[Rfam]
RNA sequence: AUUCUCAGAUUUCGCUUCAUUCAUGCAUGAAUCUUUUGUCUUUUACUAAAGAUUUCCGUGAAGAGGAACAUUAACGAGUUGACCUUAUUUUUGCAGGCUUUGCUCACACAAAGCU
Number, nucleotide and partner (000 for none) at each position: 001a000002u000003u000004c078005u077006c076007a000008g000009a000010u068011u067012u066013c065014g000015c063016u062017u061018c060019a059020u000021u000022c000023a000024u000025g000026c000027a000028u000029g055030a054031a053032u052033c051034u050035u049036u048037u000038g000039u000040c000041u000042u000043u000044u000045a000046c000047u000048a036049a035050a034051g033052a032053u031054u030055u029056c000057c000058g000059u019060g018061a017062a016063g015064a000065g013066g012067a011068a010069c000070a000071u000072u000073a000074a000075c000076g006077a005078g004079u000080u000081g000082a000083c000084c000085u000086u000087a000088u000089u000090u000091u000092u000093g000094c000095a115096g000097g114098c113099u112100u111101u110102g109103c000104u000105c000106a000107c000108a000109c102110a101111a100112a099113g098114c097115u095

This 115-nucleotide RNA sequence from Bagarius yarrelli belongs to the Rfam family "U5 spliceosomal RNA". About the family: U5 RNA is a component of both types of known spliceosome. The precise function of this molecule is unknown, though it is known that the 5' loop is required for splice site selection and p220 binding, and that both the 3' stem-loop and the Sm site are important for Sm protein binding and cap methylation. Gene Ontology terms of the family: U5 snRNP and spliceosomal tri-snRNP complex assembly.